The family of this 167-nucleotide RNA sequence from Caldalkalibacillus thermarum is "M-box riboswitch aptamer (ykoK leader)". The pairing is the family consensus, mapped onto this sequence.
RNA sequence: CGACUCCUUCGUUAGGUGAGGCUCCUGUACGGAGAUACGCUACUGCCCAGAAAUGUCUAAAGACGCCAAUGGGUCAACAGGAACGAUCGAGGUAAGGUCGUUUCUAAUGUAGCUGGAGCAAAGCUCCUAUGCCGUACAGUGCCAAAGCUCAACGAAUGAAGGAGCAG
Dot-bracket structure: ....(((((((([.(((..(((..((((((((......(((((.(((((....((((....))))....))))).....((((..(((......])))..))))....))))).(((.......)))....)))))))).)))...)))..))....))))))....
The family has 159 seed sequences and 1,095 matches in Rfam 15.1. M-box riboswitch, also know as ykoK leader is described as a metaloregulatory RNA that sense divalent metals and function as a genetic control element of genes related to divalent metal transport in bacteria.